[Rfam]
RNA sequence: UCGUAAAGUGAUGACGUGACAGACGGAGUGUCACAUUAUCAAGCCUAAUCACUAACAUAUCAUUGACACAUCAUUGAAGGUGAUAACGUGACAAUGAUGUGUCAAUGGUAAGGUGUGAUGAUGUGACAUUCUGUAUGUCACAUCAUCACUUAACAAAA
Numbered sequence: 001u002c003g004u005a006a007a008g009u010g011a012u013g014a015c016g017u018g019a020c021a022g023a024c025g026g027a028g029u030g031u032c033a034c035a036u037u038a039u040c041a042a043g044c045c046u047a048a049u050c051a052c053u054a055a056c057a058u059a060u061c062a063u064u065g066a067c068a069c070a071u072c073a074u075u076g077a078a079g080g081u082g083a084u085a086a087c088g089u090g091a092c093a094a095u096g097a098u099g100u101g102u103c104a105a106u107g108g109u110a111a112g113g114u115g116u117g118a119u120g121a122u123g124u125g126a127c128a129u130u131c132u133g134u135a136u137g138u139c140a141c142a143u144c145a146u147c148a149c150u151u152a153a154c155a156a157a158a
Stems, first nucleotide, its partner, number of pairs: 001156001003154002006151009016141006023134019043114004048109004055102004071086001073084002
Dot-bracket structure: (.((.(((((((((.((((((.(((((((((((((((((((.((((.((((...((((............(.((........)).)............))))...)))).)))).))))))))))))))))))).)))))).))))))))).)).)..